[Rfam]
The record is a 135-nucleotide RNA sequence from Pseudomonas sp. C27(2019), which matches "Group II catalytic intron D1-D4-7" in Rfam. Rfam links the family to the GO term Group II intron splicing. Rfam's curators write: Group II introns are found in rRNA, tRNA and mRNA of organelles in fungi, plants and protists, and also in mRNA in bacteria.
RNA sequence: CCCAGCAUAUGCCUGCUGGUCUGCUAAGAAGACAUGCAUAUGGGGCCAACCUGUAUGUGUGAAGCUCAUCUGACAAUGUCCUGAAAUCCGUCCGCGAGGAUGGCGUUCUUCUGUGAGCUAUACACAGGAGACAGG
Numbered sequence: 001c002c003c004a005g006c007a008u009a010u011g012c013c014u015g016c017u018g019g020u021c022u023g024c025u026a027a028g029a030a031g032a033c034a035u036g037c038a039u040a041u042g043g044g045g046c047c048a049a050c051c052u053g054u055a056u057g058u059g060u061g062a063a064g065c066u067c068a069u070c071u072g073a074c075a076a077u078g079u080c081c082u083g084a085a086a087u088c089c090g091u092c093c094g095c096g097a098g099g100a101u102g103g104c105g106u107u108c109u110u111c112u113g114u115g116a117g118c119u120a121u122a123c124a125c126a127g128g129a130g131a132c133a134g135g
Base pairs, nucleotide, nucleotide: 002019003018004017005016006015007014028070029069031067032066033061034060035059036058037057038056039055040054041053042052043051044050089105090104091103092099093098110128111127112126113125114124115123